[Rfam]
RNA sequence: UCACCAUCAUCAUCACCCAGCUUAGUCUUUCGGGAGGUGUACGCAUACUCGGGAGACGGAAUACUCCCGAAGGUUUAUAUCCAGCAGAUAUCAGAUUCAAACCCUUGGGAGACUCACAUCUUCCAAGGGUUUUUUCAU
Numbered sequence: 001u002c003a004c005c006a007u008c009a010u011c012a013u014c015a016c017c018c019a020g021c022u023u024a025g026u027c028u029u030u031c032g033g034g035a036g037g038u039g040u041a042c043g044c045a046u047a048c049u050c051g052g053g054a055g056a057c058g059g060a061a062u063a064c065u066c067c068c069g070a071a072g073g074u075u076u077a078u079a080u081c082c083a084g085c086a087g088a089u090a091u092c093a094g095a096u097u098c099a100a101a102c103c104c105u106u107g108g109g110a111g112a113c114u115c116a117c118a119u120c121u122u123c124c125a126a127g128g129g130u131u132u133u134u135u136c137a138u
Stems, first nucleotide, its partner, number of pairs: 009046002011039004017034002020031001049070007099132013
Source information
The family of this 138-nucleotide RNA sequence from Vibrio agarilyticus is "Histidine operon leader". At least 6 amino acid operons are known to be regulated by attenuation. In each a leader sequence of 150-200 bp is found upstream of the first gene in the operon. This leader sequence can assume two different secondary structures known as the terminator and the anti-terminator structure. In each case the leader also codes for very short peptide sequence that is rich in the end product amino acid of the operon. The terminator structure is recognised as a termination signal for RNA polymerase and the operon is not transcribed. This structure forms when the cell has an excess of the regulatory amino acid and ribosome movement over the leader transcript is not impeded. When there is a deficiency of the charged tRNA of the regulatory amino acid the ribosome translating the leader peptide stalls and the antiterminator structure can form. This allows RNA polymerase to transcribe the operon. In the Rfam alignment the consensus structure is of the terminator structure. The base pairs follow the family's consensus structure, which is taken from published work.